Small nucleolar RNA SNORD72: a 76-nucleotide sequence from Scophthalmus maximus. From the family's description: snoRNA HBII-240 belongs to the CD family of snoRNAs. It is the human orthologue of the mouse MBII-240 and is predicted to guide 2'O-ribose methylation of the large 28S rRNA at residue U4590. The organism belongs to Scophthalmus, within Eukaryota. The pairing is the family consensus, mapped onto this sequence. Rfam classes the family as a C/D-box small nucleolar RNA.
RNA sequence: UGCUUACCAAUGAUGGUGAAAAAAAUGUCUGAACAAAUGAACUCAAAUGAUAUCAGUGUUUUCUCUGAGGUAAGCA
Number, nucleotide and partner (000 for none) at each position: 001u000002g075003c074004u073005u072006a071007c070008c069009a000010a000011u000012g000013a000014u000015g000016g000017u000018g000019a000020a000021a000022a000023a000024a000025a000026u000027g000028u000029c000030u000031g000032a000033a000034c000035a000036a000037a000038u000039g000040a000041a000042c000043u000044c000045a000046a000047a000048u000049g000050a000051u000052a000053u000054c000055a000056g000057u000058g000059u000060u000061u000062u000063c000064u000065c000066u000067g000068a000069g008070g007071u006072a005073a004074g003075c002076a000